[Rfam]
RNA sequence: AGUAUUGACGAAUACCACCGUAGAAGUAUUCAGGUCUCAUAACUACGGAUA
Numbered sequence: 001a002g003u004a005u006u007g008a009c010g011a012a013u014a015c016c017a018c019c020g021u022a023g024a025a026g027u028a029u030u031c032a033g034g035u036c037u038c039a040u041a042a043c044u045a046c047g048g049a050u051a
Stems, first nucleotide, its partner, number of pairs: 002015005